[Rfam]
RNA sequence: CUGCAUCCUUAAUAAACCCCCCAGUUGCAAUCUGUGGCCUCUGGGACAAGAAAGGAUGCGAGAUCAAUCUUAGAACCAUCCAAAGCUGAGAGUUGGUGUCAGUAGCUCUUGGUUAUUUCACCUCUAAGACAGAA
Number, nucleotide and partner (000 for none) at each position: 001c000002u000003g059004c058005a057006u056007c000008c000009u051010u050011a000012a000013u000014a000015a000016a000017c000018c000019c000020c045021c044022c043023a042024g041025u000026u000027g038028c037029a000030a000031u000032c000033u000034g000035u000036g000037g028038c027039c000040u000041c024042u023043g022044g021045g020046a000047c000048a000049a000050g010051a009052a000053a000054g000055g000056a006057u005058g004059c003060g000061a000062g000063a000064u133065c132066a000067a000068u129069c128070u127071u126072a125073g124074a123075a000076c000077c000078a000079u000080c000081c000082a000083a000084a114085g113086c112087u111088g110089a109090g108091a000092g106093u105094u000095g000096g000097u102098g000099u000100c000101a000102g097103u000104a000105g093106c092107u000108c090109u089110u088111g087112g086113u085114u084115a000116u000117u000118u000119c000120a000121c000122c000123u074124c073125u072126a071127a070128g069129a068130c000131a000132g065133a064134a000